[Rfam]
The record is a 98-nucleotide sequence from Anaerostipes rhamnosivorans, which matches "Purine riboswitch aptamer" in Rfam. A search with the family's covariance model found it, with a score of 68 bits. Gene Ontology term of the family: purine nucleobase biosynthetic process. Pairs were carried over by alignment from the consensus structure, which is taken from published work.
Nucleotides: 098
Base pairs, nucleotide, nucleotide: 019083020082021081022080023079024078025077029047030046031045032044033043056074057073058072059071060070061069
Number, partner (000 for none) and nucleotide at each position: 001000a002000u003000a004000u005000a006000u007000g008000a009000u010000a011000u012000a013000u014000a015000u016000a017000g018000c019083a020082a021081u022080u023079a024078u025077a026000u027000a028000a029047g030046c031045u032044c033043a034000u035000a036000a037000u038000a039000u040000g041000g042000u043033u044032g045031a046030g047029c048000g049000u050000u051000u052000c053000u054000a055000c056074c057073a058072a059071c060070u061069g062000c063000c064000g065000u066000a067000a068000a069061u070060a071059g072058u073057u074056g075000a076000u077025u078024a079023u080022a081021a082020u083019u084000c085000a086000u087000u088000g089000a090000a091000u092000u093000a094000u095000g096000a097000u098000c